[Rfam]
RNA: Selenocysteine insertion sequence 1
Organism: Orycteropus afer
RNA sequence: GUCACACUUAAUGACGUGGAUGGAGUAAAGCUUUCGGGACUUGCAUUUACUGAUGUAAUGUGAC
Numbered sequence: 001g002u003c004a005c006a007c008u009u010a011a012u013g014a015c016g017u018g019g020a021u022g023g024a025g026u027a028a029a030g031c032u033u034u035c036g037g038g039a040c041u042u043g044c045a046u047u048u049a050c051u052g053a054u055g056u057a058a059u060g061u062g063a064c
Stems, first nucleotide, its partner, number of pairs: 001064005016050007024042002031038002